RNA: Y RNA
Organism: Propithecus coquereli
RNA sequence: GGUUGGUCCUAGUGCAGUGGUAUUUACAACUAACUGAUCACAACCAGUUACCGAUUAUUUUGUUCCUUCUCCACUCCCACUGCUUCACUUGACCAGUAAGU
Numbered sequence: 001g002g003u004u005g006g007u008c009c010u011a012g013u014g015c016a017g018u019g020g021u022a023u024u025u026a027c028a029a030c031u032a033a034c035u036g037a038u039c040a041c042a043a044c045c046a047g048u049u050a051c052c053g054a055u056u057a058u059u060u061u062g063u064u065c066c067u068u069c070u071c072c073a074c075u076c077c078c079a080c081u082g083c084u085u086c087a088c089u090u091g092a093c094c095a096g097u098a099a100g101u
Base pairs, nucleotide, nucleotide: 002097003096004095005094006093007092008091011089014086016081017080018079019078020077028064029063030062032060033059